[Rfam]
RNA sequence: AAGAUCAUACUUCACAGGAUCAUUUCUGUAGUGUAUCUUCACAGACUCUCUACCCAAAGUAGGAGUCGAUGCAGCCACGAGGAUGAGACGUGGCUGCCCAUUUUGAGCGUGAGGCUGGCGGCCUCGAGCUUCCCAUUGCGGAGGCUCGACCUGCCAACGAUGAUCGUUCACCUUCGAGUUUCAUACCCGAUGGGAUGGAUGGGCAGCUGUCUGAGUGGU
Numbered sequence: 001a002a003g004a005u006c007a008u009a010c011u012u013c014a015c016a017g018g019a020u021c022a023u024u025u026c027u028g029u030a031g032u033g034u035a036u037c038u039u040c041a042c043a044g045a046c047u048c049u050c051u052a053c054c055c056a057a058a059g060u061a062g063g064a065g066u067c068g069a070u071g072c073a074g075c076c077a078c079g080a081g082g083a084u085g086a087g088a089c090g091u092g093g094c095u096g097c098c099c100a101u102u103u104u105g106a107g108c109g110u111g112a113g114g115c116u117g118g119c120g121g122c123c124u125c126g127a128g129c130u131u132c133c134c135a136u137u138g139c140g141g142a143g144g145c146u147c148g149a150c151c152u153g154c155c156a157a158c159g160a161u162g163a164u165c166g167u168u169c170a171c172c173u174u175c176g177a178g179u180u181u182c183a184u185a186c187c188c189g190a191u192g193g194g195a196u197g198g199a200u201g202g203g204c205a206g207c208u209g210u211c212u213g214a215g216u217g218g219u
Base pairs, nucleotide, nucleotide: 001039002038003037004036005035007034008033009032010031011030015028016027017026018025019024048063049062052060053059074219075218076217077216078215093207094206095205096204097203098202099201100200101199102198103197107167108166109165117155118154119153120152124149125148126147127146129144130143131142132141133140171192174190175189176188178186179185